[Rfam]
RNA sequence: ACCGCGCCUAGCUCGACGGGGCGAAAACCGGGCUCCCUUACCCGGCCGGCGCGGCUCCUCUCAAGGG
Number, nucleotide and partner (000 for none) at each position: 001a000002c054003c053004g052005c051006g050007c049008c048009u000010a000011g022012c021013u020014c019015g000016a000017c000018g000019g014020g013021g012022c011023g000024a000025a000026a000027a000028c045029c044030g043031g042032g041033c000034u000035c067036c066037c065038u064039u063040a000041c032042c031043c030044g029045g028046c000047c000048g008049g007050c006051g005052c004053g003054g002055c000056u000057c000058c000059u000060c000061u000062c000063a039064a038065g037066g036067g035